Shown here is a 130-nucleotide RNA sequence from Streptococcus parauberis, a member of the family "Streptococcus sRNA SSRC34". Rfam describes the family as follows. It is based on computationally predicted coordinates (RNAz). By type it is a small RNA.
[Rfam]
RNA sequence: UGAAAACGUUUUAAAAUAAAGACGUUCUUGAAUUUCGUUUUUUUGAAAAAGAAUUGCCAAAAUUAAUUUUGGAAGGAGAUUAUUCUUCUUCAAGUUAACGAAAAAAAAUAUUAAAGGAGGAAGAACAAGA
Numbered sequence: 001u002g003a004a005a006a007c008g009u010u011u012u013a014a015a016a017u018a019a020a021g022a023c024g025u026u027c028u029u030g031a032a033u034u035u036c037g038u039u040u041u042u043u044u045g046a047a048a049a050a051g052a053a054u055u056g057c058c059a060a061a062a063u064u065a066a067u068u069u070u071g072g073a074a075g076g077a078g079a080u081u082a083u084u085c086u087u088c089u090u091c092a093a094g095u096u097a098a099c100g101a102a103a104a105a106a107a108a109u110a111u112u113a114a115a116g117g118a119g120g121a122a123g124a125a126c127a128a129g130a
Base pairs, nucleotide, nucleotide: 006025007024008023009022010021011020012019026124027123028122029121033103034102035101036100037099038098039097042094043093044092045091046090047089049087050086051085052084053083054082057072058071059070060069